[Rfam]
RNA sequence: CGGUAAUGUACAAAGACUAAAUACGCGCCGUCCUAUCGCUUCGUCUACACUAUACGUCGCAACGUCUUCAUGAUCAACUUCCUGUUGA
Numbered sequence: 001c002g003g004u005a006a007u008g009u010a011c012a013a014a015g016a017c018u019a020a021a022u023a024c025g026c027g028c029c030g031u032c033c034u035a036u037c038g039c040u041u042c043g044u045c046u047a048c049a050c051u052a053u054a055c056g057u058c059g060c061a062a063c064g065u066c067u068u069c070a071u072g073a074u075c076a077a078c079u080u081c082c083u084g085u086u087g088a
Stems, first nucleotide, its partner, number of pairs: 013068005025060003029056003074088005

This 88-nucleotide RNA sequence from Bacillus sp. J14TS2 belongs to the Rfam family "Bacillaceae-1 RNA". Rfam classes the family as a small RNA. A search with the family's covariance model found it, with a score of 46 bits. Taxonomically the source falls in Bacillus (Bacteria, Bacillati, Caryophanales, Bacillaceae).